RNA sequence: CCUGCGGAGAGUAAUAGAACUUGUGAGUAGUAUCGAUAAAUUUGAUAUGAAAGCAUACUCGAUGAAACAGGAA
Numbered sequence: 001c002c003u004g005c006g007g008a009g010a011g012u013a014a015u016a017g018a019a020c021u022u023g024u025g026a027g028u029a030g031u032a033u034c035g036a037u038a039a040a041u042u043u044g045a046u047a048u049g050a051a052a053g054c055a056u057a058c059u060c061g062a063u064g065a066a067a068c069a070g071g072a073a
Stems, first nucleotide, its partner, number of pairs: 001071004009060005022055003030048007

Annotation
This 73-nucleotide RNA sequence belongs to the Rfam family "RAGATH-18 RNA". It is annotated as a small RNA. Rfam describes the family as follows. Actinobacteria, Firmicutes, Fusobacteria, Thermotogae (1 example).